[Rfam]
RNA: Group II catalytic intron D1-D4-1
RNA sequence: GCCUCGUGCCUGAAAGGGCAACAGUUAAAGCUGGAGUGAGAAAUCAGCAGAUGUCGUAGUAGCCGCAGUAGCGGGGCCGAUGAGUCCGUAAGUCAAACGGCGAAGGAC
Dot-bracket structure: ((.(..(((((....)))))..)......))...........(((....)))(((......(((..................................)))....)))
Numbered sequence: 001g002c003c004u005c006g007u008g009c010c011u012g013a014a015a016g017g018g019c020a021a022c023a024g025u026u027a028a029a030g031c032u033g034g035a036g037u038g039a040g041a042a043a044u045c046a047g048c049a050g051a052u053g054u055c056g057u058a059g060u061a062g063c064c065g066c067a068g069u070a071g072c073g074g075g076g077c078c079g080a081u082g083a084g085u086c087c088g089u090a091a092g093u094c095a096a097a098c099g100g101c102g103a104a105g106g107a108c
Stems, first nucleotide, its partner, number of pairs: 001031002004023001007020005043052003053108003062101003